[Rfam]
RNA: SAM riboswitch aptamer (S box leader)
RNA sequence: GGCUUAUCGCGAGAGGUGGAGGGAGGGCCCCGAUGAAACCCGGCAACCCCGCUAUUUAGCCGGAAGGUGCCAAGUGCCGCAGGAAACCUCCUGGAAGAUAAGUU
Number, nucleotide and partner (000 for none) at each position: 001g104002g103003c102004u101005u100006a099007u098008c097009g000010c000011g000012a000013g041014a000015g040016g039017u038018g000019g000020a000021g031022g030023g029024a000025g000026g078027g077028c076029c023030c022031c021032g000033a000034u000035g000036a000037a000038a017039c016040c015041c013042g071043g070044c069045a068046a000047c067048c066049c063050c062051g061052c000053u000054a000055u000056u000057u000058a000059g000060c000061c051062g050063g049064a000065a000066g048067g047068u045069g044070c043071c042072a000073a000074g000075u096076g028077c027078c026079g000080c093081a092082g091083g090084a089085a000086a000087c000088c000089u084090c083091c082092u081093g080094g000095a000096a075097g008098a007099u006100a005101a004102g003103u002104u001